The record is a 77-nucleotide RNA sequence from Suricata suricatta, which matches "Small nucleolar RNA SNORD83" in Rfam. NCBI's taxonomy places the organism under Eukaryota, Mammalia, Boreoeutheria, Carnivora, Suricata. The family's RNA type in Rfam is C/D-box small nucleolar RNA.
RNA sequence: GCCAAAUGAUGUUUUUCUGAUUCAGGAGCACUUUCGUGCUGGGAUGACUCUUCAUCUAUCACCCAUGACUGAUGGCU
Numbered sequence: 001g002c003c004a005a006a007u008g009a010u011g012u013u014u015u016u017c018u019g020a021u022u023c024a025g026g027a028g029c030a031c032u033u034u035c036g037u038g039c040u041g042g043g044a045u046g047a048c049u050c051u052u053c054a055u056c057u058a059u060c061a062c063c064c065a066u067g068a069c070u071g072a073u074g075g076c077u
Stems, first nucleotide, its partner, number of pairs: 001076004028039004